[Rfam]
RNA sequence: CCGGAUCAAUUGGGUAUUAGGUUCCGGUGCGGGCACCGGCGGACGUCUGGUGCGCUGCUCGUACCCAUGUUGCUCAAUGGAGGAUAUGGCUAUGCGCA
Dot-bracket structure: (((((.................)))))..((((((((((.......))))))).)))(.((((.(((((((.(((....)))))))))).)))).)..
RNA: Repression of heat shock gene expression (ROSE) element
Organism: Nordella sp. HKS 07